[Rfam]
RNA: Small nucleolar RNA SNORA73 family
RNA sequence: CCGACAUGGAUAUCCAGCGAGGUUGCUCUCCUGGCUCUGUCCUUGUGGCGUAUGGGAGCGUAGCUUUCAGCUGAGACGUAAAGUCCCGUUCCACGAUGUCGGAGACAAAGCUCUUCUCCCGGCCGCCGGUCGGUGAGGACGGGCGUUCUGUAUAUUCCUACAUCUUCCCAGAGUCCUUUGGGGCCAUUACUGGGGGGCUAAACCAUGCAGUGCACAAUA
Number, nucleotide and partner (000 for none) at each position: 001c102002c101003g100004a099005c098006a097007u096008g042009g041010a040011u039012a038013u000014c034015c033016a032017g000018c000019g028020a027021g026022g000023u000024u000025g000026c021027u020028c019029u000030c000031c000032u016033g015034g014035c000036u000037c000038u012039g011040u010041c009042c008043u000044u000045g094046u093047g092048g091049c000050g000051u000052a000053u000054g087055g086056g085057a084058g000059c000060g079061u078062a000063g000064c073065u000066u000067u000068c000069a000070g000071c000072u000073g064074a000075g000076a000077c000078g061079u060080a000081a000082a000083g000084u057085c056086c055087c054088g000089u000090u000091c048092c047093a046094c045095g000096a007097u006098g005099u004100c003101g002102g001103a000104g000105a000106c000107a000108a000109a000110g000111c000112u000113c000114u000115u000116c000117u000118c000119c000120c000121g000122g000123c000124c000125g000126c000127c000128g000129g000130u000131c000132g000133g000134u000135g000136a000137g000138g000139a000140c000141g000142g000143g000144c000145g000146u000147u000148c210149u209150g208151u207152a206153u205154a000155u000156u000157c000158c000159u000160a000161c000162a000163u000164c197165u196166u195167c194168c193169c192170a000171g000172a000173g184174u183175c182176c181177u000178u000179u000180g000181g176182g175183g174184c173185c000186a000187u000188u000189a000190c000191u000192g169193g168194g167195g166196g165197g164198c000199u000200a000201a000202a000203c000204c000205a153206u152207g151208c150209a149210g148211u000212g000213c000214a000215c000216a000217a000218u000219a000